A member of the RNA family "mir-8799 microRNA precursor family" from Vulpes vulpes, 91 nucleotides long. The source organism's lineage runs through Eukaryota, Deuterostomia, Dipnotetrapodomorpha, Theria and Vulpes. The match comes from Rfam's covariance-model search (88 bits). Its Rfam clan is "mir-8791 microRNA precursor clan".
RNA sequence: GGAGGGAAGCCAGAUCCUGGGCUGUGUCCCGGCGCCCUGUGCUCCGGAGCCUGCGCUGUUGGGUUUGCGCUCCCGGCCGUACAGCCCCUCC
Dot-bracket structure: ((((((..(.(.(..((.(((.(((((((((((((...(.(((....)))).))))))..)))..)))).))).))).)..)...))))))
Numbered sequence: 001g002g003a004g005g006g007a008a009g010c011c012a013g014a015u016c017c018u019g020g021g022c023u024g025u026g027u028c029c030c031g032g033c034g035c036c037c038u039g040u041g042c043u044c045c046g047g048a049g050c051c052u053g054c055g056c057u058g059u060u061g062g063g064u065u066u067g068c069g070c071u072c073c074c075g076g077c078c079g080u081a082c083a084g085c086c087c088c089u090c091c
Stems, first nucleotide, its partner, number of pairs: 001091006009082001011079001013077001016076002019073003023069004027063003030058006039051001041050003